Description
Small nucleolar RNA R66: a 78-nucleotide RNA from Durio zibethinus. From the family's description: snoR66 is a C/D box small nucleolar RNA, which acts as a methylation guide for 18S ribosomal RNA in plants. snoR66 has been alternatively named snoZ269 in rice.

RNA sequence: UCCAAUGAAGGCACGAAAUCUUUGAGACCUAAUCAUUUGCUUUGUUUCACAACAACCAUAAGCAAAAUCACCGAGGAC
Numbered sequence: 001u002c003c004a005a006u007g008a009a010g011g012c013a014c015g016a017a018a019u020c021u022u023u024g025a026g027a028c029c030u031a032a033u034c035a036u037u038u039g040c041u042u043u044g045u046u047u048c049a050c051a052a053c054a055a056c057c058a059u060a061a062g063c064a065a066a067a068u069c070a071c072c073g074a075g076g077a078c
Stems, first nucleotide, its partner, number of pairs: 001077003032047001034044002
Rfam 15.1 lists 584 matches to the family in 219 species.
Taxonomically the source falls in Durio (Eukaryota, Streptophyta, Streptophytina, Helicteroideae).
Rfam classes the family as a C/D-box small nucleolar RNA.
Its family is annotated with RNA processing and nucleolus in the Gene Ontology.
The literature on the family includes a 2003 paper in Nucleic Acids Res by Chen et al., "The high diversity of snoRNAs in plants: identification and comparative study of 120 snoRNA genes from Oryza sativa".
A search with the family's covariance model found it, with a score of 56 bits.